Rfam assigns this 272-nucleotide RNA from Mycoplasmopsis canis to the family "Bacterial RNase P class B".
[Rfam]
Nucleotides: 272
Base pairs, nucleotide, nucleotide: 004272005271006270007268008239009238010237011236012235013234014233016028017027018026019025020024033266034265035264037263038262039261040260041259042154043153044152045151046150047064048063049062050061051060052059070149071148072147073146074145075093076092077091078090079089080088094101095099102144103143107142108141109138110137111136158173159172160171177205178204179203180202181201182200183199206224207223208222209221210220211219241251242250243249244248
Number, partner (000 for none) and nucleotide at each position: 001000u002000g003000u004272a005271u006270c007268g008239g009238c010237u011236g012235a013234u014233a015000g016028c017027u018026g019025c020024a021000a022000a023000u024020u025019g026018c027017a028016g029000a030000g031000g032000a033266a034265a035264g036000u037263c038262c039261g040260u041259g042154c043153u044152a045151g046150c047064a048063c049062c050061g051060g052059c053000u054000g055000a056000g057000a058000u059052g060051u061050c062049g063048g064047u065000a066000g067000u068000g069000u070149u071148c072147a073146u074145g075093u076092u077091a078090a079089g080088c081000c082000a083000a084000a085000u086000a087000a088080g089079c090078u091077u092076a093075a094101g095099c096000c097000u098000a099095g100000a101094c102144g103143a104000c105000u106000a107142g108141u109138g110137c111136c112000a113000c114000a115000g116000a117000g118000a119000c120000g121000a122000g123000a124000a125000u126000u127000g128000u129000g130000a131000a132000a133000c134000g135000c136111g137110g138109u139000a140000a141108a142107c143103u144102c145074c146073a147072u148071g149070a150046g151045c152044u153043a154042g155000a156000a157000a158173c159172c160171c161000a162000a163000a164000u165000u166000u167000g168000g169000u170000a171160g172159g173158g174000g175000a176000a177205c178204c179203u180202u181201g182200a183199a184000u185000a186000g187000a188000a189000a190000a191000u192000g193000a194000a195000c196000g197000a198000u199183u200182u201181u202180g203179a204178g205177g206224a207223a208222c209221a210220u211219a212000u213000u214000u215000u216000u217000u218000a219211u220210a221209u222208g223207u224206u225000a226000g227000a228000u229000a230000a231000a232000u233014u234013a235012u236011c237010a238009g239008c240000a241251c242250a243249u244248u245000u246000a247000a248244a249243a250242u251241g252000u253000a254000c255000a256000g257000a258000a259041c260040a261039c262038g263037g264035c265034u266033u267000a268007c269000a270006g271005a272004u

The family's consensus secondary structure is taken from published work. The match comes from Rfam's covariance-model search (213 bits). By type it is a ribozyme. Rfam links the family to the GO terms tRNA processing, ribonuclease P activity and dimeric ribonuclease P complex. The source organism's lineage runs through Bacteria, Bacillati, Mycoplasmatota, Mycoplasmopsis and Mycoplasmopsis canis.